[Rfam]
RNA: Glycine riboswitch aptamer
Organism: Thetidibacter halocola
RNA sequence: CAAGCCGUCACAGGAGAGGCCGAGACACUCGGCGCCGAAGGAGCAACCCCCCGGAACCUCUCAGGCAAAAGGACUGUGACCGGAGC
Numbered sequence: 001c002a003a004g005c006c007g008u009c010a011c012a013g014g015a016g017a018g019g020c021c022g023a024g025a026c027a028c029u030c031g032g033c034g035c036c037g038a039a040g041g042a043g044c045a046a047c048c049c050c051c052c053g054g055a056a057c058c059u060c061u062c063a064g065g066c067a068a069a070a071g072g073a074c075u076g077u078g079a080c081c082g083g084a085g086c
Stems, first nucleotide, its partner, number of pairs: 007080007020032004034066003037062002041060003047054002